[Rfam]
RNA sequence: CCUUCCGAAACAUGUCGCAGCAUGACCUGAUCGGAGAUCGUUAGCGGUGUAGAGCACUGAUUGGGGGUGUCGGGGAAGAAAUUCCUCGCCCCUCUGUCAAACUCCAAAGUCGCUAUCAUCGUAGAAGAUCGGAGUCCGGGCACGGGGUAAGCUCGUUGUCCGUAAGGGAGACAACCCUGACCGUGGUUAAGGUCCCUCAGUGUCGGCUAAGUGUUAAAAAUAAAGGGCGUCCCAGGCCAUAGACAACUGGAAGGUUAGCUUAGAAGCAGCUACCCUCUAAGGAGUGCGUAACAGCCCACCAGUCGAGGUUUGGGGCCCCGAAAAUGGACGGGGCUCAAGCCGACCACCGAUACCACGGAGUAUCGUAAGAUAAUCUCGUAGGAAGGCGUCUUGUUUGGGCAGAAGCAGGGCUGUAAAGUCCUGUGGACCAUGCAGGAACGAAAAU
Numbered sequence: 001c002c003u004u005c006c007g008a009a010a011c012a013u014g015u016c017g018c019a020g021c022a023u024g025a026c027c028u029g030a031u032c033g034g035a036g037a038u039c040g041u042u043a044g045c046g047g048u049g050u051a052g053a054g055c056a057c058u059g060a061u062u063g064g065g066g067g068u069g070u071c072g073g074g075g076a077a078g079a080a081a082u083u084c085c086u087c088g089c090c091c092c093u094c095u096g097u098c099a100a101a102c103u104c105c106a107a108a109g110u111c112g113c114u115a116u117c118a119u120c121g122u123a124g125a126a127g128a129u130c131g132g133a134g135u136c137c138g139g140g141c142a143c144g145g146g147g148u149a150a151g152c153u154c155g156u157u158g159u160c161c162g163u164a165a166g167g168g169a170g171a172c173a174a175c176c177c178u179g180a181c182c183g184u185g186g187u188u189a190a191g192g193u194c195c196c197u198c199a200g201u202g203u204c205g206g207c208u209a210a211g212u213g214u215u216a217a218a219a220a221u222a223a224a225g226g227g228c229g230u231c232c233c234a235g236g237c238c239a240u241a242g243a244c245a246a247c248u249g250g251a252a253g254g255u256u257a258g259c260u261u262a263g264a265a266g267c268a269g270c271u272a273c274c275c276u277c278u279a280a281g282g283a284g285u286g287c288g289u290a291a292c293a294g295c296c297c298a299c300c301a302g303u304c305g306a307g308g309u310u311u312g313g314g315g316c317c318c319c320g321a322a323a324a325u326g327g328a329c330g331g332g333g334c335u336c337a338a339g340c341c342g343a344c345c346a347c348c349g350a351u352a353c354c355a356c357g358g359a360g361u362a363u364c365g366u367a368a369g370a371u372a373a374u375c376u377c378g379u380a381g382g383a384a385g386g387c388g389u390c391u392u393g394u395u396u397g398g399g400c401a402g403a404a405g406c407a408g409g410g411c412u413g414u415a416a417a418g419u420c421c422u423g424u425g426g427a428c429c430a431u432g433c434a435g436g437a438a439c440g441a442a443a444a445u
Base pairs, nucleotide, nucleotide: 001386002385003384004383005382006381011024012023013022014021015020026134027132028131029130030129031128032127036120037119038118040117042115043114044113045112046111047110052105053103054102059098060097061096063094064093065092066091067090072087073086074085075084076083077082138161139160140159141158142156143155144154145153166177167176168175181358182357183356184355185354186353187352191348192347193346200345202344203343204342205341206340207339225319226318227317229316230315231314232313233312234311235310236309237308238307246303247302248301249300250299252276253275254274257271258270259269277281282297286295287294359376360375361372362371363370364369387440389437390436391435392434393433394432396430397429398428405424406423407422408421409420410419411418412417

This 445-nucleotide part of an RNA from Candidatus Methanogaster sp. belongs to the Rfam family "Archaeal large subunit ribosomal RNA".
It scores 2941 bits against the family's covariance model.
The family's consensus secondary structure is taken from published work.